[Rfam]
RNA: SAM riboswitch aptamer (S box leader)
RNA sequence: AUGUUAUCAAGAAAGGUGGAGGGACUAGACCCGCUGAAGCCUUAGCAACCCUUUGUUCUGCAAAGAAGGUGCUACAUUCUACACCGCAAAUUGCGGCUGAUAGAUAACGA
Numbered sequence: 001a002u003g004u005u006a007u008c009a010a011g012a013a014a015g016g017u018g019g020a021g022g023g024a025c026u027a028g029a030c031c032c033g034c035u036g037a038a039g040c041c042u043u044a045g046c047a048a049c050c051c052u053u054u055g056u057u058c059u060g061c062a063a064a065g066a067a068g069g070u071g072c073u074a075c076a077u078u079c080u081a082c083a084c085c086g087c088a089a090a091u092u093g094c095g096g097c098u099g100a101u102a103g104a105u106a107a108c109g110a
Base pairs, nucleotide, nucleotide: 002109003108004107005106006105007104008103013043014042015041016040017039021032022031023030026081027080028079029078044073045072046071047070049069050068051065052064053063054062077102082099083098084096085095086094087093